Shown here is a 68-nucleotide sequence from Anas platyrhynchos, a member of the family "Small nucleolar RNA SNORD63". Rfam classes the family as a C/D-box small nucleolar RNA. Lineage of the source: Eukaryota > Eumetazoa > Sarcopterygii > Aves > Anas platyrhynchos. About the family: snoRNA U63 is found in both humans and mice. A reference for the family is Galardi et al. (2002), "Purified box C/D snoRNPs are able to reproduce site-specific 2'-O-methylation of target RNA in vitro", Mol Cell Biol. A search with the family's covariance model found it, with a score of 57 bits. The family's consensus secondary structure was predicted with PFOLD.
[Rfam]
RNA sequence: GUGCCAUGAUGUAACUGUCAACACAUCAUCCUGAAGGAUCGUGUGGAGACCUUCUGUAACUGAGCACC
Numbered sequence: 001g002u003g004c005c006a007u008g009a010u011g012u013a014a015c016u017g018u019c020a021a022c023a024c025a026u027c028a029u030c031c032u033g034a035a036g037g038a039u040c041g042u043g044u045g046g047a048g049a050c051c052u053u054c055u056g057u058a059a060c061u062g063a064g065c066a067c068c
Stems, first nucleotide, its partner, number of pairs: 001067004